[Rfam]
RNA sequence: GAAUAGAUAUGAUGAUAACCUUAACAUUGAACUCUCUCUCUGAUUCUGUGAUGAAAAAUCCAAGGUCUGAUCUGUUC
Numbered sequence: 001g002a003a004u005a006g007a008u009a010u011g012a013u014g015a016u017a018a019c020c021u022u023a024a025c026a027u028u029g030a031a032c033u034c035u036c037u038c039u040c041u042g043a044u045u046c047u048g049u050g051a052u053g054a055a056a057a058a059u060c061c062a063a064g065g066u067c068u069g070a071u072c073u074g075u076u077c
Stems, first nucleotide, its partner, number of pairs: 001077007
Dot-bracket structure: (((((((...............................................................)))))))
A member of the RNA family "Small nucleolar RNA SNORD81" from Phrynocephalus forsythii, 77 nucleotides long.
The family's consensus secondary structure was predicted with PFOLD.
A reference for the family is Smith and Steitz (1998), "Classification of gas5 as a multi-small-nucleolar-RNA (snoRNA) host gene and a member of the 5'-terminal oligopyrimidine gene family reveals common features of snoRNA host genes", Mol Cell Biol.
It scores 59 bits against the family's covariance model.
Gene Ontology terms of the family: nucleolus and RNA processing.
The family's RNA type in Rfam is C/D-box small nucleolar RNA.
The family is grouped with related families in Rfam's "SNORD26 clan".